Source information: Shown here is a 360-nucleotide RNA from Oceanospirillum linum, a member of the family "Bacterial RNase P class A". The match comes from Rfam's covariance-model search (336 bits). Rfam classes the family as a ribozyme. Taxonomically the source falls in Oceanospirillum (Bacteria, Pseudomonadota, Gammaproteobacteria, Oceanospirillaceae).

RNA sequence: GGAGUUGGCCAGGCAGUCGCUGCUUUUACGGUUCGCCGUAAAAGGGGAGGAAAGUCCGGGCUCCAUAGGGCAGGGUGCCAGGUAACGCCUGGGGGGCGCGAGCCUACGGAAAGUGCAGCAGAGAGUAAACCGCCGAUGGCUCCCCGGAGCACAGGUAAGGGUGAAAGGGUGCGGUAAGAGCGCACCGCAUGACUGGCAACAGUUCAUGGCAUGGUAAACCCCACUCGGAGCAAGACCAAAUAGGAACCCUACAGGUGCGGCCCGCACUGGGUUCGGGUAGGUUGCUUGAGGCCUGUGGCAACGCAGGCCCUAGAUGAAUGACUGUCCACGACAGAACCCGGCUUACGGCCGACUCCACAU
Number, nucleotide and partner (000 for none) at each position: 001g356002g355003a354004g353005u352006u351007g350008g349009c348010c347011a000012g326013g325014c324015a323016g322017u321018c320019g000020c047021u046022g000023c044024u043025u042026u041027u040028a039029c038030g037031g000032u000033u000034c000035g000036c000037c030038g029039u028040a027041a026042a025043a024044g023045g000046g021047g020048a000049g000050g000051a000052a344053a343054g342055u000056c341057c340058g339059g338060g337061c230062u229063c228064c227065a000066u000067a000068g263069g262070g261071c260072a000073g226074g225075g224076u223077g222078c092079c091080a090081g089082g088083u000084a000085a000086c000087g000088c082089c081090u080091g079092g078093g107094g105095g104096g103097c102098g000099c000100g000101a000102g097103c096104c095105u094106a000107c093108g221109g220110a000111a000112a000113g219114u218115g215116c214117a000118g000119c000120a000121g000122a000123g000124a000125g000126u000127a000128a000129a000130c160131c159132g156133c155134c154135g000136a000137u153138g152139g150140c149141u148142c147143c000144c000145c000146g000147g142148a141149g140150c139151a000152c138153a137154g134155g133156u132157a000158a000159g131160g130161g000162u000163g000164a000165a000166a000167g000168g186169g185170u184171g183172c182173g181174g000175u000176a000177a000178g000179a000180g000181c173182g172183c171184a170185c169186c168187g210188c208189a207190u206191g205192a204193c202194u201195g200196g000197c000198a000199a000200c195201a194202g193203u000204u192205c191206a190207u189208g188209g000210c187211a000212u000213g000214g116215u115216a000217a000218a114219c113220c109221c108222c077223a076224c075225u074226c073227g064228g063229a062230g061231c000232a000233a000234g283235a282236c281237c280238a000239a000240a000241u000242a000243g000244g274245a273246a272247c271248c270249c269250u000251a000252c000253a000254g268255g267256u266257g265258c264259g000260g071261c070262c069263c068264g258265c257266a256267c255268u254269g249270g248271g247272u246273u245274c244275g000276g000277g000278u000279a000280g237281g236282u235283u234284g000285c000286u000287u000288g000289a000290g309291g308292c307293c306294u305295g304296u303297g302298g000299c000300a000301a000302c297303g296304c295305a294306g293307g292308c291309c290310c000311u000312a000313g000314a000315u000316g000317a000318a000319u000320g018321a017322c016323u015324g014325u013326c012327c000328a000329c000330g000331a000332c000333a000334g000335a000336a000337c060338c059339c058340g057341g056342c054343u053344u052345a000346c000347g010348g009349c008350c007351g006352a005353c004354u003355c002356c001357a000358c000359a000360u000